This 95-nucleotide RNA sequence from Cryptosporangium aurantiacum belongs to the Rfam family "Glycine riboswitch aptamer". This family represents the bacterial glycine riboswitch. Glycine riboswitches usually consist of two metabolite-binding aptamers domains with similar structures in tandem. It scores 68 bits against the family's covariance model.
[Rfam]
RNA sequence: CGUAACCGUGCGGGAGAGUCCCUGGGCAGCCGGCUCAGGGCGCCGAAGGAGCAACCUCCCCGGAACCUCUCAGGCCACAGGACCGUGCGGUAGGG
Numbered sequence: 001c002g003u004a005a006c007c008g009u010g011c012g013g014g015a016g017a018g019u020c021c022c023u024g025g026g027c028a029g030c031c032g033g034c035u036c037a038g039g040g041c042g043c044c045g046a047a048g049g050a051g052c053a054a055c056c057u058c059c060c061c062g063g064a065a066c067c068u069c070u071c072a073g074g075c076c077a078c079a080g081g082a083c084c085g086u087g088c089g090g091u092a093g094g095g
Stems, first nucleotide, its partner, number of pairs: 006090008020040006042075003045071002049069003055063002